[Rfam]
RNA sequence: GGGGACCUUCGGGGCCCUUCACUGCCGGGCCCUCGGCCCGAGACCCAAGAGGCGGCCUCGACCGCCCGUAACGACGGAAGACAGGAA
Numbered sequence: 001g002g003g004g005a006c007c008u009u010c011g012g013g014g015c016c017c018u019u020c021a022c023u024g025c026c027g028g029g030c031c032c033u034c035g036g037c038c039c040g041a042g043a044c045c046c047a048a049g050a051g052g053c054g055g056c057c058u059c060g061a062c063c064g065c066c067c068g069u070a071a072c073g074a075c076g077g078a079a080g081a082c083a084g085g086a087a
Stems, first nucleotide, its partner, number of pairs: 001018004006014003027067004
Shown here is an 87-nucleotide RNA from Rhodosalinus sediminis, a member of the family "L2-Alphaproteobacteria ribosomal protein leader".
A search with the family's covariance model found it, with a score of 40 bits.
On this family, see Eckert and Weinberg, BMC Microbiol 2020: "Discovery of 20 novel ribosomal leader candidates in bacteria and archaea".
By type it is a cis-regulatory leader.